[Rfam]
RNA sequence: GCCCAAUUUCGCACGUGCCUGUGGUCGCGUGCCGAUCGGCGGAGUUCCGGACAAGAGGCCGGAGUACCGCCGGGAAGAUCGGUAGCCGGAGGCGAAACCGGCGCACCUCGCUCUCAGCGGGGAACGUGACUUGAAGCAACGACGUAGCGGGCUUUU
Numbered sequence: 001g002c003c004c005a006a007u008u009u010c011g012c013a014c015g016u017g018c019c020u021g022u023g024g025u026c027g028c029g030u031g032c033c034g035a036u037c038g039g040c041g042g043a044g045u046u047c048c049g050g051a052c053a054a055g056a057g058g059c060c061g062g063a064g065u066a067c068c069g070c071c072g073g074g075a076a077g078a079u080c081g082g083u084a085g086c087c088g089g090a091g092g093c094g095a096a097a098c099c100g101g102c103g104c105a106c107c108u109c110g111c112u113c114u115c116a117g118c119g120g121g122g123a124a125c126g127u128g129a130c131u132u133g134a135a136g137c138a139a140c141g142a143c144g145u146a147g148c149g150g151g152c153u154u155u156u
Stems, first nucleotide, its partner, number of pairs: 001152004009142003016138003023131008038071005046063005079101005104121001